[Rfam]
RNA sequence: CUUCUCGUCCCGGGGGAGUAGUCGCUCUUCUUGUCUGAUAUUUUCUCUCUGAAAAUAUCCCAGACGAAUAUGACAGAGGUUUACAUCAACAUAGUUGGUCCUCAUGACCAUGGUGUAAACAGCCGUAUUGAUCUGCAAUGCGGCCUGACGAGACCUGUGACACAACGCACUGAACCGGGGCCGGAGCAGUGUGAUGUGUCAUAGUGUUUGUUCUCUGCCGGCCCCUA
Numbered sequence: 001c002u003u004c005u006c007g008u009c010c011c012g013g014g015g016g017a018g019u020a021g022u023c024g025c026u027c028u029u030c031u032u033g034u035c036u037g038a039u040a041u042u043u044u045c046u047c048u049c050u051g052a053a054a055a056u057a058u059c060c061c062a063g064a065c066g067a068a069u070a071u072g073a074c075a076g077a078g079g080u081u082u083a084c085a086u087c088a089a090c091a092u093a094g095u096u097g098g099u100c101c102u103c104a105u106g107a108c109c110a111u112g113g114u115g116u117a118a119a120c121a122g123c124c125g126u127a128u129u130g131a132u133c134u135g136c137a138a139u140g141c142g143g144c145c146u147g148a149c150g151a152g153a154c155c156u157g158u159g160a161c162a163c164a165a166c167g168c169a170c171u172g173a174a175c176c177g178g179g180g181c182c183g184g185a186g187c188a189g190u191g192u193g194a195u196g197u198g199u200c201a202u203a204g205u206g207u208u209u210g211u212u213c214u215c216u217g218c219c220g221g222c223c224c225c226u227a
Stems, first nucleotide, its partner, number of pairs: 026077003079120010096110005126227002
This 227-nucleotide RNA from Oceanospirillum linum belongs to the Rfam family "Manganese Mn2+ riboswitch aptamer (yybP-ykoY)". Rfam's curators write: This RNA was originally discovered in E. coli during a large scale screen and was named SraF. The family was later found to exist upstream of related families of protein genes in many bacteria, including the the yybP and ykoK genes in B. subtilis. The specific functions of these proteins are unknown, but this structured RNA element may be involved in their genetic regulation as a riboswitch.